[Rfam]
RNA: Bacillus sRNA ncr982
Organism: Bacillus amyloliquefaciens
RNA sequence: AAUGUAAGCAUGAUGUAAGUUUUUCCUCCUUAGCGGGUUCGUUUCUAAGCCAGGGCGAACCUGCUCUUUUUUAUGCAAA
Number, nucleotide and partner (000 for none) at each position: 001a000002a011003u010004g009005u000006a000007a000008g000009c004010a003011u002012g000013a000014u000015g000016u000017a000018a000019g000020u000021u000022u000023u000024u000025c000026c000027u000028c000029c000030u000031u000032a000033g000034c063035g062036g061037g060038u059039u058040c057041g056042u055043u000044u054045c053046u000047a000048a000049g000050c000051c000052a000053g045054g044055g042056c041057g040058a039059a038060c037061c036062u035063g034064c000065u000066c000067u000068u000069u000070u000071u000072u000073a000074u000075g000076c000077a000078a000079a000